[Rfam]
RNA sequence: GGCCGGGUGGAGAGGCGUAAUACAAUACCCGAAAGGGGAAUAUGCCCGGAGUGUCUUAGAAGACUCCAGUUGACACCUGGUCACCAAUUA
Numbered sequence: 001g002g003c004c005g006g007g008u009g010g011a012g013a014g015g016c017g018u019a020a021u022a023c024a025a026u027a028c029c030c031g032a033a034a035g036g037g038g039a040a041u042a043u044g045c046c047c048g049g050a051g052u053g054u055c056u057u058a059g060a061a062g063a064c065u066c067c068a069g070u071u072g073a074c075a076c077c078u079g080g081u082c083a084c085c086a087a088u089u090a
Base pairs, nucleotide, nucleotide: 001082002081003080004079005078006077007076008075009074014046015045016044018042019041028037029036030035048067049066050065051064052063
RNA: sRNA-Xcc1